[Rfam]
RNA: small nucleolar RNA snoR126
RNA sequence: UGGCUGUGACGACAAAAGGAUAUUUUGUUGAUUUUGAUUCUUAAUGCAAUUUAAGGGCCAAAUUGUGAUGACCUUAUUUGUGCGUGUCUGAGCCGA
Numbered sequence: 001u002g003g004c005u006g007u008g009a010c011g012a013c014a015a016a017a018g019g020a021u022a023u024u025u026u027g028u029u030g031a032u033u034u035u036g037a038u039u040c041u042u043a044a045u046g047c048a049a050u051u052u053a054a055g056g057g058c059c060a061a062a063u064u065g066u067g068a069u070g071a072c073c074u075u076a077u078u079u080g081u082g083c084g085u086g087u088c089u090g091a092g093c094c095g096a
Stems, first nucleotide, its partner, number of pairs: 001095004